RNA: antisense RNA of rseC mRNA
Organism: Salmonella enterica
RNA sequence: UUGUGAGCGCUUAUUUUGCAGGGAUCUUGAGAGGAUUUUGUCGUAGGUUUGCGGAGGGUGGCGGGGUAUCAAUUAUCGAUGUGAGCAAUGAUCGAAAAGUUACGUAUGUUCUUCAUAGAGAUAAAUUAUUAUGCCUUACGCCUGGUUGACCAGACUUUAGAGGUCGCUGUUCUGAGCUUAACGUCUGUUUUAACUGAAACGCCGCAUUCUACACUACAACGCUAAGGCGAGGAAAUGUUCAUAGUGUAAGGAGAGCGGGAACUGGAAAACGCCUCGCUUUUUUCCUGUAAAACACCGCAACGCAGGAAAAGCGCAUGCUUAUCGGGACAACAACCCAACGCGGCAGGUGUACCGUUGGGCAAAACGUUUACUGGCGCGUUUCGAUUGAGGUAGUUUCGACGCGAACAAGGUCCGGUGGGAGGGCAACGUUUAAAAUCACCGGCUGCCAGGCGUCGCGCUCCGCCAGUUUUCGGGAAUAGCCGCGGGCAACCAGAAAACCGCCCACGCCGCCCAGCACGGCCCCGCUUAAUGCGGCAAGGUCAGAUCCAAACAGCAUCUGAAAAAGCGCCGCACAAAGAAAUAGCCCCGCUAAAGGCGACAUAUAGACCAGCAACGCCGAACCUAAAAGGCUUUUUUCGGCGAUGCCCAACUCGACUUUCUGCCCCGGCGCCAGCGGCUCCGCGCUUGGCACAACAAUGGUAUGCGUGGUUUGCGGCCCUAAUUUAUUCAGCACGCGACUGCCGCAUCCCGCACGGGAGGCGCAGCUGCUGCAUGACGCUUUAACGUCGCAGCUCACCACCGCCUGACCAUUCUGCCAGGAGACAACGGUUGCCCACUCUUUAAUCAUUGUACUGCCCUGAAUUUGAUACUGUCGGCAAUGCGC
Numbered sequence: 001u002u003g004u005g006a007g008c009g010c011u012u013a014u015u016u017u018g019c020a021g022g023g024a025u026c027u028u029g030a031g032a033g034g035a036u037u038u039u040g041u042c043g044u045a046g047g048u049u050u051g052c053g054g055a056g057g058g059u060g061g062c063g064g065g066g067u068a069u070c071a072a073u074u075a076u077c078g079a080u081g082u083g084a085g086c087a088a089u090g091a092u093c094g095a096a097a098a099g100u101u102a103c104g105u106a107u108g109u110u111c112u113u114c115a116u117a118g119a120g121a122u123a124a125a126u127u128a129u130u131a132u133g134c135c136u137u138a139c140g141c142c143u144g145g146u147u148g149a150c151c152a153g154a155c156u157u158u159a160g161a162g163g164u165c166g167c168u169g170u171u172c173u174g175a176g177c178u179u180a181a182c183g184u185c186u187g188u189u190u191u192a193a194c195u196g197a198a199a200c201g202c203c204g205c206a207u208u209c210u211a212c213a214c215u216a217c218a219a220c221g222c223u224a225a226g227g228c229g230a231g232g233a234a235a236u237g238u239u240c241a242u243a244g245u246g247u248a249a250g251g252a253g254a255g256c257g258g259g260a261a262c263u264g265g266a267a268a269a270c271g272c273c274u275c276g277c278u279u280u281u282u283u284c285c286u287g288u289a290a291a292a293c294a295c296c297g298c299a300a301c302g303c304a305g306g307a308a309a310a311g312c313g314c315a316u317g318c319u320u321a322u323c324g325g326g327a328c329a330a331c332a333a334c335c336c337a338a339c340g341c342g343g344c345a346g347g348u349g350u351a352c353c354g355u356u357g358g359g360c361a362a363a364a365c366g367u368u369u370a371c372u373g374g375c376g377c378g379u380u381u382c383g384a385u386u387g388a389g390g391u392a393g394u395u396u397c398g399a400c401g402c403g404a405a406c407a408a409g410g411u412c413c414g415g416u417g418g419g420a421g422g423g424c425a426a427c428g429u430u431u432a433a434a435a436u437c438a439c440c441g442g443c444u445g446c447c448a449g450g451c452g453u454c455g456c457g458c459u460c461c462g463c464c465a466g467u468u469u470u471c472g473g474g475a476a477u478a479g480c481c482g483c484g485g486g487c488a489a490c491c492a493g494a495a496a497a498c499c500g501c502c503c504a505c506g507c508c509g510c511c512c513a514g515c516a517c518g519g520c521c522c523c524g525c526u527u528a529a530u531g532c533g534g535c536a537a538g539g540u541c542a543g544a545u546c547c548a549a550a551c552a553g554c555a556u557c558u559g560a561a562a563a564a565g566c567g568c569c570g571c572a573c574a575a576a577g578a579a580a581u582a583g584c585c586c587c588g589c590u591a592a593a594g595g596c597g598a599c600a601u602a603u604a605g606a607c608c609a610g611c612a613a614c615g616c617c618g619a620a621c622c623u624a625a626a627a628g629g630c631u632u633u634u635u636u637c638g639g640c641g642a643u644g645c646c647c648a649a650c651u652c653g654a655c656u657u658u659c660u661g662c663c664c665c666g667g668c669g670c671c672a673g674c675g676g677c678u679c680c681g682c683g684c685u686u687g688g689c690a691c692a693a694c695a696a697u698g699g700u701a702u703g704c705g706u707g708g709u710u711u712g713c714g715g716c717c718c719u720a721a722u723u724u725a726u727u728c729a730g731c732a733c734g735c736g737a738c739u740g741c742c743g744c745a746u747c748c749c750g751c752a753c754g755g756g757a758g759g760c761g762c763a764g765c766u767g768c769u770g771c772a773u774g775a776c777g778c779u780u781u782a783a784c785g786u787c788g789c790a791g792c793u794c795a796c797c798a799c800c801g802c803c804u805g806a807c808c809a810u811u812c813u814g815c816c817a818g819g820a821g822a823c824a825a826c827g828g829u830u831g832c833c834c835a836c837u838c839u840u841u842a843a844u845c846a847u848u849g850u851a852c853u854g855c856c857c858u859g860a861a862u863u864u865g866a867u868a869c870u871g872u873c874g875g876c877a878a879u880g881c882g883c
Stems, first nucleotide, its partner, number of pairs: 004276004008271001011265003015261003022151002025149002032143003043134003046127005051112001053110001056107001058105003065101003069095002072092003076084003152186004157181002160179003164175003187200005202258004207253004211247006217232001220229003280310009311883006317876003320868004324336003344859004349852004354847002356835007365827004371818005376402005383395005409808004414803005421794004441717006448711004452677005457670002460667003464661003470654005482505001484503004508597004513590003518585003525577003530572006540560006547553001610645003614641007621629003680707005686701002689698002730771003734768003738764004743760002746757004774787004